[Rfam]
Record summary: A member of the RNA family "Enterococcus sRNA 84" from Candidatus Enterococcus clewellii, 86 nucleotides long.
RNA sequence: UACCAACAACAACCUUUUUAUUUUUCAUAUUACUCUUUUGAGUAAUACUCCUUUUAACUAUCUCUGAAAAGAGGUAGUUUUUUUUG
Numbered sequence: 001u002a003c004c005a006a007c008a009a010c011a012a013c014c015u016u017u018u019u020a021u022u023u024u025u026c027a028u029a030u031u032a033c034u035c036u037u038u039u040g041a042g043u044a045a046u047a048c049u050c051c052u053u054u055u056a057a058c059u060a061u062c063u064c065u066g067a068a069a070a071g072a073g074g075u076a077g078u079u080u081u082u083u084u085u086g
Stems, first nucleotide, its partner, number of pairs: 030045006057078009